Shown here is an 85-nucleotide RNA from Lactococcus cremoris, a member of the family "ctRNA".

RNA sequence: UAAAGAUACGCUCCUCUGCGUGUUCAUAAGUAAGUAUGAAGAAAUUCUCGUUCAAAAGUUUGUUCUUCAUACUUUUAUUAUAUCA
Numbered sequence: 001u002a003a004a005g006a007u008a009c010g011c012u013c014c015u016c017u018g019c020g021u022g023u024u025c026a027u028a029a030g031u032a033a034g035u036a037u038g039a040a041g042a043a044a045u046u047c048u049c050g051u052u053c054a055a056a057a058g059u060u061u062g063u064u065c066u067u068c069a070u071a072c073u074u075u076u077a078u079u080a081u082a083u084c085a
Base pairs, nucleotide, nucleotide: 004027008023009022010021011020013018032074033073034072035071036070037069038068039067040066041065042064043063
By type it is an antisense RNA. Rolling circle replication plasmids contain a number of mechanisms to maintain a low copy number. A reference for the family is Duan et al. (1998), "Involvement of antisense RNA in replication control of the lactococcal plasmid pND324", FEMS Microbiol Lett.